[Rfam]
RNA sequence: GGAUCGGGCCUUUCAGGCAUCCUCUCCCAAAACUAUUCCAGGCCGGUCCUUGUGACCGGCCUUUUUUUUGGCCGCA
Numbered sequence: 001g002g003a004u005c006g007g008g009c010c011u012u013u014c015a016g017g018c019a020u021c022c023u024c025u026c027c028c029a030a031a032a033c034u035a036u037u038c039c040a041g042g043c044c045g046g047u048c049c050u051u052g053u054g055a056c057c058g059g060c061c062u063u064u065u066u067u068u069u070g071g072c073c074g075c076a
Stems, first nucleotide, its partner, number of pairs: 008018004040062009
Description:
This 76-nucleotide RNA sequence from Novosphingobium sp. PhB165 belongs to the Rfam family "Makes More Granules Regulator RNA (mmgR)". The organism belongs to Novosphingobium, within Bacteria. SuhB later renamed mmgR (makes more granules regulator) was a putative non-coding RNA found multiple times in the Agrobacterium tumefaciens genome and related alpha-proteobacteria. Other non-coding RNAs uncovered in the same analysis include: speF, ybhL, metA, and serC.Several studies inSinorhizobium meliloti showed that suhB element is indeed a non-coding RNA:firstly it was detected on Northern blot and called Sm8RNA, secondly in an RNAseq study referred to as SmelC689.The mutant phenotype's (strain lacking the small RNA) cytoplasm contains higher content of polyhydroxybutyrate (PBH)storage granules than wild type strain. The sRNA is required to limit the PBH intracellular accumulation when the nitrogen-fixing Sinorhizobium meliloti is under condition of surplus carbon in relation to nitrogen. Rfam classes the family as a small RNA.